[Rfam]
RNA sequence: CCGACCUUAGCUCAGUUGGUAGAGCGGAGGACUGUAGAUCCUUAGGUCACUGGUUCGAAUCCGGUAGGUCGGA
Numbered sequence: 001c002c003g004a005c006c007u008u009a010g011c012u013c014a015g016u017u018g019g020u021a022g023a024g025c026g027g028a029g030g031a032c033u034g035u036a037g038a039u040c041c042u043u044a045g046g047u048c049a050c051u052g053g054u055u056c057g058a059a060u061c062c063g064g065u066a067g068g069u070c071g072g073a
Stems, first nucleotide, its partner, number of pairs: 001072007010025004027043005049065005